[Rfam]
RNA: c-di-AMP riboswitch aptamer (ydaO/yuaA leader)
Organism: Bacillaceae bacterium SAS-127
RNA sequence: AUUUUUAAAACGCUUAAUUCCUCAUUAGGAGGAAGCGGGGGAACCAAUGUUAUUGGGGUGAAUCUCGAUAUUCGAGUAGGGUAACUCUCGUGCCCGAAUCCGUCAGCUAACCUCGUCAGCGUAUCGAGAGAGGUACC
Numbered sequence: 001a002u003u004u005u006u007a008a009a010a011c012g013c014u015u016a017a018u019u020c021c022u023c024a025u026u027a028g029g030a031g032g033a034a035g036c037g038g039g040g041g042a043a044c045c046a047a048u049g050u051u052a053u054u055g056g057g058g059u060g061a062a063u064c065u066c067g068a069u070a071u072u073c074g075a076g077u078a079g080g081g082u083a084a085c086u087c088u089c090g091u092g093c094c095c096g097a098a099u100c101c102g103u104c105a106g107c108u109a110a111c112c113u114c115g116u117c118a119g120c121g122u123a124u125c126g127a128g129a130g131a132g133g134u135a136c137c
Base pairs, nucleotide, nucleotide: 011121012120013119014118018034019033020032021031022030035116036115037114038113039112040111045055046054056101057100058099064076065075066074067073079095080094081093082092